[Rfam]
RNA sequence: UAAUUAAAUAGUUGCCGUGCCUUUUGGUCUAAGGGCUUUGCCUAUGAUCAUCUGGCCUGAGCAGAAAUGCUCACGGGGUCGUGAUUGGAAACGAUGCGGCCUUCACGUUUUGAGAAGGAAACAAAAAAAUGUAGGC
Numbered sequence: 001u002a003a004u005u006a007a008a009u010a011g012u013u014g015c016c017g018u019g020c021c022u023u024u025u026g027g028u029c030u031a032a033g034g035g036c037u038u039u040g041c042c043u044a045u046g047a048u049c050a051u052c053u054g055g056c057c058u059g060a061g062c063a064g065a066a067a068u069g070c071u072c073a074c075g076g077g078g079u080c081g082u083g084a085u086u087g088g089a090a091a092c093g094a095u096g097c098g099g100c101c102u103u104c105a106c107g108u109u110u111u112g113a114g115a116a117g118g119a120a121a122c123a124a125a126a127a128a129a130u131g132u133a134g135g136c
Stems, first nucleotide, its partner, number of pairs: 003130002011122003015118002019056003025050005033043004058073005076102006084095004103113002
Record summary
The family of this 136-nucleotide sequence from Sporobacter termitidis is "Molybdenum/Tungsten riboswitch aptamer (Moco RNA motif)". Pairs were carried over by alignment from the consensus structure, which is taken from published work.